[Rfam]
RNA sequence: CCGCCCGUCGCUACUACCGAUUGAAUGGUUUAGUGAGGCCUCGGGAUUGGCGCGUGGGCGCUGGCAACAGCUGCCCAUGUGUUUCUUUGCUGAGAACCUGGUCAAACUUGAUCAUUUAGAGGAAGUAAAAGUCGUAACAAGGUUUCCGUAGGUGAACCUGCGGAAGGAUCAUUC
Numbered sequence: 001c002c003g004c005c006c007g008u009c010g011c012u013a014c015u016a017c018c019g020a021u022u023g024a025a026u027g028g029u030u031u032a033g034u035g036a037g038g039c040c041u042c043g044g045g046a047u048u049g050g051c052g053c054g055u056g057g058g059c060g061c062u063g064g065c066a067a068c069a070g071c072u073g074c075c076c077a078u079g080u081g082u083u084u085c086u087u088u089g090c091u092g093a094g095a096a097c098c099u100g101g102u103c104a105a106a107c108u109u110g111a112u113c114a115u116u117u118a119g120a121g122g123a124a125g126u127a128a129a130a131g132u133c134g135u136a137a138c139a140a141g142g143u144u145u146c147c148g149u150a151g152g153u154g155a156a157c158c159u160g161c162g163g164a165a166g167g168a169u170c171a172u173u174c
Stems, first nucleotide, its partner, number of pairs: 001141001003138001006134002009131001012127004017122002021118001023117008032108003037103004043097001047093006054086001056084002059081003143166010

A member of the RNA family "Eukaryotic small subunit ribosomal RNA" from Salpingoeca rosetta, 174 nucleotides of a longer RNA.